[Rfam]
RNA sequence: AAAGCAAGCUGCAAUUACAGUGCUUCAUUUUGUGAAAUACUAAAUACUGCCAUUAUCCUGCUGAAAGAAAAGCUGUGUUAAUGAUUUUUGAUUUUGUCUUUGUGAGAGUAAAAUCAUGACAGAUUGACAUGGACAAUU
Numbered sequence: 001a002a003a004g005c006a007a008g009c010u011g012c013a014a015u016u017a018c019a020g021u022g023c024u025u026c027a028u029u030u031u032g033u034g035a036a037a038u039a040c041u042a043a044a045u046a047c048u049g050c051c052a053u054u055a056u057c058c059u060g061c062u063g064a065a066a067g068a069a070a071a072g073c074u075g076u077g078u079u080a081a082u083g084a085u086u087u088u089u090g091a092u093u094u095u096g097u098c099u100u101u102g103u104g105a106g107a108g109u110a111a112a113a114u115c116a117u118g119a120c121a122g123a124u125u126g127a128c129a130u131g132g133a134c135a136a137u138u
Stems, first nucleotide, its partner, number of pairs: 003062004008057001018049005024043002073132010089116009099106002
The record is a 138-nucleotide RNA from Macaca mulatta, which matches "Small nucleolar RNA SNORA69" in Rfam. NCBI's taxonomy places the organism under Eukaryota, Vertebrata, Gnathostomata, Catarrhini, Macaca. By type it is an H/ACA-box small nucleolar RNA. About the family: U69 is a member of the H/ACA class of small nucleolar RNAs (snoRNAs) which act as guides in the the modification of uridines to pseudouridines. The sequence is in the family's curated seed alignment.